[Rfam]
RNA sequence: CUUCAGCGACCCCAGCCGCAGCGGCGCGGCGCGGUCCUGGCCGUAGGUGGCCAGCAGUGCCUGCGCCUC
Numbered sequence: 001c002u003u004c005a006g007c008g009a010c011c012c013c014a015g016c017c018g019c020a021g022c023g024g025c026g027c028g029g030c031g032c033g034g035u036c037c038u039g040g041c042c043g044u045a046g047g048u049g050g051c052c053a054g055c056a057g058u059g060c061c062u063g064c065g066c067c068u069c
Base pairs, nucleotide, nucleotide: 015025016024017023029064030063032059033058037054038053039052041050042049043048
A member of the RNA family "ASpks TB sRNA" from Streptomyces malaysiensis, 69 nucleotides long. It is annotated as an antisense RNA.